This 100-nucleotide RNA sequence from Leuconostoc mesenteroides belongs to the Rfam family "Guanidine-I riboswitch aptamer".
[Rfam]
Nucleotides: 100
Stems, first nucleotide, its partner, number of pairs: 007053006015043002020040002022037001023034004055072007075095001077098001082092002
Number, partner (000 for none) and nucleotide at each position: 001000u002000c003000u004000a005000u006000a007053g008052u009051u010050u011049u012048c013000u014000a015043g016042g017000g018000u019000u020040c021039c022037g023034c024033u025032a026031u027000a028000a029000u030000a031026a032025u033024a034023g035000g036000u037022c038000u039021g040020g041000u042016c043015c044000a045000a046000g047000a048012g049011a050010a051009a052008a053007c054000a055072u056071a057070c058069a059068a060067u061066g062000a063000u064000u065000a066061c067060a068059u069058u070057g071056u072055a073000c074000a075095c076000a077098c078000g079000g080000a081000c082092g083091g084000a085000u086000a087000a088000a089000a090000g091083c092082c093000u094000a095075g096000g097000a098077g099000a100000u